[Rfam]
RNA sequence: CCACAACUUAAAUGUGGAUGUGCUUGCUUUGUUCUGAAAAGAAAGUGCUUCCAUGUUUUAGUGAUGG
Numbered sequence: 001c002c003a004c005a006a007c008u009u010a011a012a013u014g015u016g017g018a019u020g021u022g023c024u025u026g027c028u029u030u031g032u033u034c035u036g037a038a039a040a041g042a043a044a045g046u047g048c049u050u051c052c053a054u055g056u057u058u059u060a061g062u063g064a065u066g067g
Stems, first nucleotide, its partner, number of pairs: 001067003006062003010058009020048006027041002
Overview
The record is a 67-nucleotide RNA sequence from Gallus gallus, which matches "mir-302 microRNA precursor family" in Rfam. Gene Ontology terms of the family: miRNA-mediated post-transcriptional gene silencing and RISC complex. Rfam's curators put it in the seed alignment.